[Rfam]
RNA: mir-728 microRNA precursor family
RNA sequence: AGAUGUAGUAGACUAUAAGUAUACAUGCAGCAUGGAGAGUAUACUAAGUAGACUACGUUUUC
Numbered sequence: 001a002g003a004u005g006u007a008g009u010a011g012a013c014u015a016u017a018a019g020u021a022u023a024c025a026u027g028c029a030g031c032a033u034g035g036a037g038a039g040u041a042u043a044c045u046a047a048g049u050a051g052a053c054u055a056c057g058u059u060u061u062c
Stems, first nucleotide, its partner, number of pairs: 001060009012049003018045007